[Rfam]
RNA sequence: GUCGCCACCGCCUCAGACUCGCUUGGUGCAGAUCGGGAACCCGCUUCGGAAAUCUCUAAGAGCUUCUCUCUUAUCGGAUCGAGGUGGAUCCCGCCUUGCGCCAAGUGAAUCUGAGUCGGGCAUGCGA
Numbered sequence: 001g002u003c004g005c006c007a008c009c010g011c012c013u014c015a016g017a018c019u020c021g022c023u024u025g026g027u028g029c030a031g032a033u034c035g036g037g038a039a040c041c042c043g044c045u046u047c048g049g050a051a052a053u054c055u056c057u058a059a060g061a062g063c064u065u066c067u068c069u070c071u072u073a074u075c076g077g078a079u080c081g082a083g084g085u086g087g088a089u090c091c092c093g094c095c096u097u098g099c100g101c102c103a104a105g106u107g108a109a110u111c112u113g114a115g116u117c118g119g120g121c122a123u124g125c126g127a
Stems, first nucleotide, its partner, number of pairs: 013114002017110001019108002023104009034093005040087002
RNA: MIR168 microRNA precursor family